[Rfam]
RNA: mir-130 microRNA precursor family
RNA sequence: UCCCGGCCGGAGCUCUUUUCACAUUGUGCUACUGUCUGCGCCCGUCACUAGCAGUGCAAUGUAAUAAGGGGCUUCGGCGGGGCA
Numbered sequence: 001u002c003c004c005g006g007c008c009g010g011a012g013c014u015c016u017u018u019u020c021a022c023a024u025u026g027u028g029c030u031a032c033u034g035u036c037u038g039c040g041c042c043c044g045u046c047a048c049u050a051g052c053a054g055u056g057c058a059a060u061g062u063a064a065u066a067a068g069g070g071g072c073u074u075c076g077g078c079g080g081g082g083c084a
Stems, first nucleotide, its partner, number of pairs: 001084001003082001006078005012072007019064001022061009